[Rfam]
RNA sequence: ACACACACUGAAUGGCCAGAUUAUUAUGAUUUCUGAACGCAUAAUAAUCUGGCCACUCAGUGUAUAG
Numbered sequence: 001a002c003a004c005a006c007a008c009u010g011a012a013u014g015g016c017c018a019g020a021u022u023a024u025u026a027u028g029a030u031u032u033c034u035g036a037a038c039g040c041a042u043a044a045u046a047a048u049c050u051g052g053c054c055a056c057u058c059a060g061u062g063u064a065u066a067g
Stems, first nucleotide, its partner, number of pairs: 005063007013055005019049010
RNA: mir-9256 microRNA precursor family
Organism: Cnephaeus nilssonii